RNA: AfaR small RNA
RNA sequence: UAGCUACAUAUGUUCCAUAACAGACGUCCACUUUUUGAUGAAAAGGUGGACACUGCAUCACCAAUACAAGUUUAAUGGCUAUAUACGGCACUCAGUUUACACUUACAUUACAUAUGCAUUUUAACACAUCAACUAUAACACCUUUAUUUAAGUCUGUUGUGGACCAUAGAAUAUGGUAAAUUACAACAAGCAAAAUAAAGUUAUACAUGCUUUUAUAAAAUAACAUGCUAUUUU
Number, nucleotide and partner (000 for none) at each position: 001u000002a000003g000004c000005u000006a000007c000008a000009u168010a167011u166012g165013u000014u163015c162016c161017a160018u159019a158020a157021c156022a155023g154024a153025c152026g051027u050028c049029c048030a047031c046032u045033u044034u043035u042036u041037g000038a000039u000040g000041a036042a035043a034044a033045g032046g031047u030048g029049g028050a027051c026052a000053c000054u118055g117056c116057a115058u114059c000060a000061c000062c000063a109064a108065u107066a000067c000068a104069a103070g102071u101072u000073u099074a098075a097076u000077g000078g089079c088080u087081a000082u000083a000084u000085a000086c000087g080088g079089c078090a000091c000092u000093c000094a000095g000096u000097u075098u074099a073100c000101a071102c070103u069104u068105a000106c000107a065108u064109u063110a000111c000112a000113u000114a058115u057116g056117c055118a054119u000120u000121u000122u000123a000124a000125c000126a000127c000128a000129u000130c000131a000132a000133c000134u000135a000136u000137a000138a000139c000140a000141c000142c000143u000144u000145u000146a000147u000148u000149u000150a000151a000152g025153u024154c023155u022156g021157u020158u019159g018160u017161g016162g015163a014164c000165c012166a011167u010168a009169g000170a000171a000172u000173a000174u000175g000176g000177u000178a000179a000180a000181u000182u000183a000184c000185a000186a000187c000188a000189a000190g000191c000192a000193a000194a000195a000196u000197a000198a000199a000200g000201u000202u000203a000204u000205a000206c000207a000208u000209g228210c227211u000212u225213u223214u222215a221216u000217a000218a000219a000220a000221u215222a214223a213224c000225a212226u000227g210228c209229u000230a000231u000232u000233u000234u000